ZMP/ZTP riboswitch aptamer (pfl RNA motif): a 132-nucleotide RNA from Rhodoferax fermentans.

[Rfam]
RNA sequence: UGCUGCGUACGCAACUGGCGAUAGGCACCCCACCCGCACGGGUCUGGCGGUGCCGAUGUGGGAACACCACGGGGGAGCGUGCCGCAACAUCCAUUGGGGUUUUGCGUUCAGCCGUUCGCCUGGGCAGCCCUG
Numbered sequence: 001u002g003c004u005g006c007g008u009a010c011g012c013a014a015c016u017g018g019c020g021a022u023a024g025g026c027a028c029c030c031c032a033c034c035c036g037c038a039c040g041g042g043u044c045u046g047g048c049g050g051u052g053c054c055g056a057u058g059u060g061g062g063a064a065c066a067c068c069a070c071g072g073g074g075g076a077g078c079g080u081g082c083c084g085c086a087a088c089a090u091c092c093a094u095u096g097g098g099g100u101u102u103u104g105c106g107u108u109c110a111g112c113c114g115u116u117c118g119c120c121u122g123g124g125c126a127g128c129c130c131u132g
Stems, first nucleotide, its partner, number of pairs: 007082006015074002017120005058070004109127001111125003
Dot-bracket structure: ......((((((..(([[[[[....................................((((.....))))..))..))))))..........................(.(((..]]]]]..))).).....

The match comes from Rfam's covariance-model search (49 bits). Pairs were carried over by alignment from the consensus structure, which is taken from published work.